[Rfam]
Rfam assigns this 164-nucleotide RNA from Erinaceus europaeus to the family "Small nucleolar RNA SNORA33". About the family: ACA33 is a member of the H/ACA class of snoRNA that guide the sites of modification of uridines to pseudouridines. The source organism's lineage runs through Eukaryota, Metazoa, Gnathostomata, Erinaceidae and Erinaceus.
RNA sequence: AAGCCAGUCAAUGAAUCUGCUUACCUGAUUGCGUUUCUGCAGAAAUUUUUUAUAAUUGGCAAUAGUAAUGCCAUGUUACGAGCCUUAAUGACGUUAGGGUCUUUAAGGUCCCUACUACUACUACUAGCGUUUGCCAUUUAAGGUCCCUGAAAGUGACUAUAUAA
Numbered sequence: 001a002a003g004c005c006a007g008u009c010a011a012u013g014a015a016u017c018u019g020c021u022u023a024c025c026u027g028a029u030u031g032c033g034u035u036u037c038u039g040c041a042g043a044a045a046u047u048u049u050u051u052a053u054a055a056u057u058g059g060c061a062a063u064a065g066u067a068a069u070g071c072c073a074u075g076u077u078a079c080g081a082g083c084c085u086u087a088a089u090g091a092c093g094u095u096a097g098g099g100u101c102u103u104u105a106a107g108g109u110c111c112c113u114a115c116u117a118c119u120a121c122u123a124c125u126a127g128c129g130u131u132u133g134c135c136a137u138u139u140a141a142g143g144u145c146c147c148u149g150a151a152a153g154u155g156a157c158u159a160u161a162u163a164a
Stems, first nucleotide, its partner, number of pairs: 003060005016043005070157001072155002082144007
The match comes from Rfam's covariance-model search (112 bits). Rfam classes the family as an H/ACA-box small nucleolar RNA.